RNA sequence: GAGUAUGACACCUCUCCCCAACGAGAGGUUUCUUCCUUAGGAGGAAGAGACG
Numbered sequence: 001g002a003g004u005a006u007g008a009c010a011c012c013u014c015u016c017c018c019c020a021a022c023g024a025g026a027g028g029u030u031u032c033u034u035c036c037u038u039a040g041g042a043g044g045a046a047g048a049g050a051c052g
Base pairs, nucleotide, nucleotide: 011028012027013026014025015024016023032047033046034045035044036043037042
Dot-bracket structure: ..........((((((......))))))...((((((....)))))).....
Source information: This 52-nucleotide RNA belongs to the Rfam family "serC leader". The pairing is the family consensus, mapped onto this sequence. A reference for the family is Corbino et al. (2005), "Evidence for a second class of S-adenosylmethionine riboswitches and other regulatory RNA motifs in alpha-proteobacteria", Genome Biol. The match comes from Rfam's covariance-model search (36 bits). It is annotated as a cis-regulatory leader.